[Rfam]
RNA: TPP riboswitch aptamer (THI element)
Organism: Lacunisphaera limnophila
RNA sequence: GCUUGCCUGUAGGGGUGUCCUCCGCGGAGGACUGAGAUUGCGGUGCGCUCGACCGCUCGACCCUUCGAACCUGAACGGAUCAUGCCGACGAAGGAAACAGCAGGCGCCGCGGA
Numbered sequence: 001g002c003u004u005g006c007c008u009g010u011a012g013g014g015g016u017g018u019c020c021u022c023c024g025c026g027g028a029g030g031a032c033u034g035a036g037a038u039u040g041c042g043g044u045g046c047g048c049u050c051g052a053c054c055g056c057u058c059g060a061c062c063c064u065u066c067g068a069a070c071c072u073g074a075a076c077g078g079a080u081c082a083u084g085c086c087g088a089c090g091a092a093g094g095a096a097a098c099a100g101c102a103g104g105c106g107c108c109g110c111g112g113a
Base pairs, nucleotide, nucleotide: 007100008099009098010097011064012063013062014061017032018031019030020029021028040056041055042054043053070094071093072092076087077086078085